[Rfam]
RNA sequence: GAACCGUCCCAACGGCUUCCUGGCGGGACGGGGGUAGAACGAAUGGAGCA
Numbered sequence: 001g002a003a004c005c006g007u008c009c010c011a012a013c014g015g016c017u018u019c020c021u022g023g024c025g026g027g028a029c030g031g032g033g034g035u036a037g038a039a040c041g042a043a044u045g046g047a048g049c050a
Base pairs, nucleotide, nucleotide: 004031005030006029007028008027009026010025013022014021015049016048017047019046020045
Dot-bracket structure: ...(((((((..(([[[.[[))..))))))).............]]]]].
Shown here is a 50-nucleotide RNA sequence from Paenirhodobacter enshiensis, a member of the family "SAM/SAH riboswitch aptamer".
For this family Rfam cites "The structure of the SAM/SAH-binding riboswitch" (Weickhmann et al., Nucleic Acids Res, 2019).
The family's consensus secondary structure is taken from published work.
The source organism's lineage runs through Bacteria, Pseudomonadati, Pseudomonadota, Alphaproteobacteria and Paenirhodobacter.
Its family is annotated with S-adenosylmethionine metabolic process and regulation of gene expression in the Gene Ontology.